[Rfam]
RNA sequence: ACCAAGGGGCACACCGCGAACACCCCCGUGAGGCUUAGGCCAAAGGUUCGCAUGUUCACCGAAAGGAAGCAUGCGCUAUG
Dot-bracket structure: .....((((..............))))......................((((((.............))))))......
Numbered sequence: 001a002c003c004a005a006g007g008g009g010c011a012c013a014c015c016g017c018g019a020a021c022a023c024c025c026c027c028g029u030g031a032g033g034c035u036u037a038g039g040c041c042a043a044a045g046g047u048u049c050g051c052a053u054g055u056u057c058a059c060c061g062a063a064a065g066g067a068a069g070c071a072u073g074c075g076c077u078a079u080g
Stems, first nucleotide, its partner, number of pairs: 006027004050074006

Shown here is an 80-nucleotide RNA sequence from Octadecabacter arcticus, a member of the family "chrB-a RNA". The sequence is in the family's curated seed alignment. The family's RNA type in Rfam is cis-regulatory element.